[Rfam]
Shown here is a 197-nucleotide sequence from Niallia taxi, a member of the family "Bacillus sRNA ncr1575".
The family's consensus secondary structure is taken from published work.
It scores 127 bits against the family's covariance model.
RNA sequence: AUUACUAAAGCAGAAGGGAUGAUGGGUGGCCGAUGGAUAACUAAUCUUAUUUUUUUCAGUUGAAAUGCAUAAUGCAAAUUAAACUAAAAUAGGAUUAGUCUGCCCAUUUUCUAUAUAGCUGUUUUAAAACAGCUUAUUUCAUGAUGCUUAAAAUGUCCGGCUAAUCCUUCCAAAAUUUAUUUUGGGAGGAUUUUUUU
Numbered sequence: 001a002u003u004a005c006u007a008a009a010g011c012a013g014a015a016g017g018g019a020u021g022a023u024g025g026g027u028g029g030c031c032g033a034u035g036g037a038u039a040a041c042u043a044a045u046c047u048u049a050u051u052u053u054u055u056u057c058a059g060u061u062g063a064a065a066u067g068c069a070u071a072a073u074g075c076a077a078a079u080u081a082a083a084c085u086a087a088a089a090u091a092g093g094a095u096u097a098g099u100c101u102g103c104c105c106a107u108u109u110u111c112u113a114u115a116u117a118g119c120u121g122u123u124u125u126a127a128a129a130c131a132g133c134u135u136a137u138u139u140c141a142u143g144a145u146g147c148u149u150a151a152a153a154u155g156u157c158c159g160g161c162u163a164a165u166c167c168u169u170c171c172a173a174a175a176u177u178u179a180u181u182u183u184g185g186g187a188g189g190a191u192u193u194u195u196u197u
Stems, first nucleotide, its partner, number of pairs: 016112004023106004029100001031098001042097012058079001060077003064073001066071001118133006163192011
Overview: It is annotated as a small RNA.